A member of the RNA family "mir-190 microRNA precursor family" from Trichonephila clavata, 77 nucleotides long. The match comes from Rfam's covariance-model search (67 bits). NCBI's taxonomy places the organism under Eukaryota, Metazoa, Eumetazoa, Protostomia, Trichonephila. On this family, see Kloosterman et al., Nucleic Acids Res 2006: "Cloning and expression of new microRNAs from zebrafish".
RNA sequence: UUGACCGUUAGAUAUGUUUGAUAUUCUUGGUUGUGUCGUAUUUUUCAACCAAGAAUCAGACAUAUACUAAUGGACUU
Dot-bracket structure: ....(((((..(((((((((((.((...(((((............))))).)).)))))))))))...)))))....